[Rfam]
The record is a 67-nucleotide sequence from Tetracentron sinense, which matches "Small nucleolar RNA SNORD109A" in Rfam. It scores 37 bits against the family's covariance model. The family's RNA type in Rfam is C/D-box small nucleolar RNA. The family's consensus secondary structure was predicted with WAR. About the family: Humans have two copies of the SNORD109 gene, SNORD109A and SNORD109B. For this family Rfam cites "The IC-SNURF-SNRPN transcript serves as a host for multiple small nucleolar RNA species and as an antisense RNA for UBE3A" (Runte et al., Hum Mol Genet, 2001).

RNA sequence: AGCUUAAUUCUGAGAAGAAAUGCCUGGAGGAGCUGAAGGAAGCAAUGCAGAUGGCAAUCCAGGGGCA
Numbered sequence: 001a002g003c004u005u006a007a008u009u010c011u012g013a014g015a016a017g018a019a020a021u022g023c024c025u026g027g028a029g030g031a032g033c034u035g036a037a038g039g040a041a042g043c044a045a046u047g048c049a050g051a052u053g054g055c056a057a058u059c060c061a062g063g064g065g066c067a
Base pairs, nucleotide, nucleotide: 002066003065004064005063
About this RNA
Clan: SNORD74 clan.